[Rfam]
RNA: Group II catalytic intron D1-D4-3
RNA sequence: AGCACCGUGAGGCGCUGUCUGAAGGAGACGUGGAAGCCGAGAGGCCCACAAGCGGCUUGGCAGACCGAAAUGCGAAAGCGUGAAACACGGCGGCUGGGCAAGUUGGCGACUGUGCGUAGAUAACGGGAAGCCCACCGAAAAUGGUGAUAUCUACUCAAAUGAGCCAGCCGGGUAGAGGUAGCUUGUCAAGUGAUGGUGUUUGGUAUGUCAAGAAGGAAGGUGAG
Numbered sequence: 001a002g003c004a005c006c007g008u009g010a011g012g013c014g015c016u017g018u019c020u021g022a023a024g025g026a027g028a029c030g031u032g033g034a035a036g037c038c039g040a041g042a043g044g045c046c047c048a049c050a051a052g053c054g055g056c057u058u059g060g061c062a063g064a065c066c067g068a069a070a071u072g073c074g075a076a077a078g079c080g081u082g083a084a085a086c087a088c089g090g091c092g093g094c095u096g097g098g099c100a101a102g103u104u105g106g107c108g109a110c111u112g113u114g115c116g117u118a119g120a121u122a123a124c125g126g127g128a129a130g131c132c133c134a135c136c137g138a139a140a141a142u143g144g145u146g147a148u149a150u151c152u153a154c155u156c157a158a159a160u161g162a163g164c165c166a167g168c169c170g171g172g173u174a175g176a177g178g179u180a181g182c183u184u185g186u187c188a189a190g191u192g193a194u195g196g197u198g199u200u201u202g203g204u205a206u207g208u209c210a211a212g213a214a215g216g217a218a219g220g221u222g223a224g
Stems, first nucleotide, its partner, number of pairs: 001016003005012002045224001047222003053216001057211005063206001064204005085199004093191003097187007104166004